MIR2912 microRNA precursor family: a 155-nucleotide sequence from Populus deltoides. Taxonomically the source falls in Populus (Eukaryota, Streptophyta, Magnoliopsida, Saliceae).
[Rfam]
RNA sequence: UCUAGAACUCAAGAUAUGAGCUAAAAAUCGAACACUGCUUGAGCUGCAGGACAGGUUCUGACUUCUCCGUUGUUGCUAAGAUUUGAACUUGAAAACGACAGAAUUGAGUCUUGAACUUUUAUGAAAGUUUUAGGUCUAUGUCUUAGCUUUCCAUU
Numbered sequence: 001u002c003u004a005g006a007a008c009u010c011a012a013g014a015u016a017u018g019a020g021c022u023a024a025a026a027a028u029c030g031a032a033c034a035c036u037g038c039u040u041g042a043g044c045u046g047c048a049g050g051a052c053a054g055g056u057u058c059u060g061a062c063u064u065c066u067c068c069g070u071u072g073u074u075g076c077u078a079a080g081a082u083u084u085g086a087a088c089u090u091g092a093a094a095a096c097g098a099c100a101g102a103a104u105u106g107a108g109u110c111u112u113g114a115a116c117u118u119u120u121a122u123g124a125a126a127g128u129u130u131u132a133g134g135u136c137u138a139u140g141u142c143u144u145a146g147c148u149u150u151c152c153a154u155u
Base pairs, nucleotide, nucleotide: 003153005151006150007149008146009145011144012143013142014141015140016139017138018137020135021133022132023131024130025129027128028127036121037120041118042117043116045114048112049111050110051109052108054105055104056103057102058101059100060099063097072088073087074086

Rfam links the family to the GO terms miRNA-mediated post-transcriptional gene silencing and RISC complex.